[Rfam]
RNA sequence: CUGCAUGGGGUGGGAGAGAGUCGGCUUUGCCGGCCGCCGAAGGCGCAAUUUGCCCAGAAUCGCUCAGGUAUCACGUACCACUCUUGCAAU
Numbered sequence: 001c002u003g004c005a006u007g008g009g010g011u012g013g014g015a016g017a018g019a020g021u022c023g024g025c026u027u028u029g030c031c032g033g034c035c036g037c038c039g040a041a042g043g044c045g046c047a048a049u050u051u052g053c054c055c056a057g058a059a060u061c062g063c064u065c066a067g068g069u070a071u072c073a074c075g076u077a078c079c080a081c082u083c084u085u086g087c088a089a090u
Stems, first nucleotide, its partner, number of pairs: 007084007020034004036069003039065002043063003049056001
RNA: Glycine riboswitch aptamer
Organism: Paracandidimonas soli